[Rfam]
RNA sequence: GGGUAGAUGCACCCUGAUUAUUUUGUCCCCAGCAUUAUGCCUGGGGUUUUUUAG
Dot-bracket structure: .(((......))).............((((((((...)).))))))........
Rfam assigns this 54-nucleotide RNA sequence from Elainella sp. C42_A2020_010 to the family "Nitrogen stress-induced RNA 1". For this family Rfam cites "Heterocyst-specific transcription of NsiR1, a non-coding RNA encoded in a tandem array of direct repeats in cyanobacteria" (Ionescu et al., J Mol Biol, 2010). Rfam 15.1 lists 962 matches to the family in 163 species. Rfam classes the family as a small RNA.